[Rfam]
RNA: Ma3 gene ribosomal frameshift signal
RNA sequence: GGGAAACGGUGGCGAGACCCAGGGAAGGAGCUGACCUGAGUCUCAGCUCCCUCAGGCUCU
Dot-bracket structure: .............(((((.((((....[[[[[..)))).)))))..........]]]]].
Numbered sequence: 001g002g003g004a005a006a007c008g009g010u011g012g013c014g015a016g017a018c019c020c021a022g023g024g025a026a027g028g029a030g031c032u033g034a035c036c037u038g039a040g041u042c043u044c045a046g047c048u049c050c051c052u053c054a055g056g057c058u059c060u
Stems, first nucleotide, its partner, number of pairs: 014044005020038004028059005